The family of this 159-nucleotide sequence from Populus tomentosa is "MIR2912 microRNA precursor family". Taxonomically the source falls in Populus (Eukaryota, Streptophyta, Euphyllophyta, Gunneridae).
[Rfam]
RNA sequence: UCUAGAACUCUAGAUAUGGGCCAAACACUAAAUAGUGUUUGGGCUGCAGGACAGAUUCAGACUUCUCUGUUGUUACUAUAAUUUGGACUUGCAAACGGCCUUCUUAAAUCUUGGUGUCCACAUGAAAGUUGUAGGCCUAUGUCUUAUUGAGUUUGUAUA
Numbered sequence: 001u002c003u004a005g006a007a008c009u010c011u012a013g014a015u016a017u018g019g020g021c022c023a024a025a026c027a028c029u030a031a032a033u034a035g036u037g038u039u040u041g042g043g044c045u046g047c048a049g050g051a052c053a054g055a056u057u058c059a060g061a062c063u064u065c066u067c068u069g070u071u072g073u074u075a076c077u078a079u080a081a082u083u084u085g086g087a088c089u090u091g092c093a094a095a096c097g098g099c100c101u102u103c104u105u106a107a108a109u110c111u112u113g114g115u116g117u118c119c120a121c122a123u124g125a126a127a128g129u130u131g132u133a134g135g136c137c138u139a140u141g142u143c144u145u146a147u148u149g150a151g152u153u154u155g156u157a158u159a
Base pairs, nucleotide, nucleotide: 003157004156006154007153008151009150012144013143014142015141016140017139018138019137020136021134023132025130027129028128029127035123036122037121041119042118043117048112049111050110051109054105055104060099062098063097072088073087074086